A member of the RNA family "iscR stability element" from Kluyvera genomosp. 3, 105 nucleotides long.

[Rfam]
RNA sequence: CAAUGAGAUUUCAGAGUCAGGCCGGGACACUCUCCCGUCAACGCGGUCGUACAUCCAGCCGGUUGCCUGACUCCUUGCAUUGAGUGAUGUACGGAGUUAAAGAGC
Numbered sequence: 001c002a003a004u005g006a007g008a009u010u011u012c013a014g015a016g017u018c019a020g021g022c023c024g025g026g027a028c029a030c031u032c033u034c035c036c037g038u039c040a041a042c043g044c045g046g047u048c049g050u051a052c053a054u055c056c057a058g059c060c061g062g063u064u065g066c067c068u069g070a071c072u073c074c075u076u077g078c079a080u081u082g083a084g085u086g087a088u089g090u091a092c093g094g095a096g097u098u099a100a101a102g103a104g105c
Base pairs, nucleotide, nucleotide: 008098010096011095012094014073015072016071017070018069019068020067021066022065023037024036025035026034027033041063042062044061045060046059076091078089079088080087
Pairs were carried over by alignment from the consensus structure, which is taken from published work. A reference for the family is Desnoyers et al. (2009), "Small RNA-induced differential degradation of the polycistronic mRNA iscRSUA", EMBO J. It is annotated as a cis-regulatory element.